[Rfam]
Nucleotides: 095
Stems, first nucleotide, its partner, number of pairs: 003092002011036002016031006034081001039088004044084003047079008
Number, partner (000 for none) and nucleotide at each position: 001000a002000a003092a004091g005000a006000a007000a008000a009000a010000g011036g012035c013000a014000a015000a016031c017030c018029g019028c020027u021026u022000g023000c024000a025000a026021a027020g028019g029018c030017g031016g032000g033000g034081c035012g036011c037000a038000a039088a040087g041086c042085c043000a044084c045083g046082a047079g048078c049077c050076c051075a052074g053073u054072u055000g056000a057000c058000a059000a060000a061000u062000c063000a064000u065000u066000u067000a068000a069000g070000u071000g072054a073053a074052c075051u076050g077049g078048g079047u080000a081034g082046u083045c084044g085042g086041g087040c088039u089000g090000c091004c092003u093000u094000c095000g
This 95-nucleotide RNA sequence from Stieleria bergensis belongs to the Rfam family "c-di-GMP-I-GGC riboswitch aptamer". The family is grouped with related families in Rfam's "c-di-GMP_I riboswitch clan".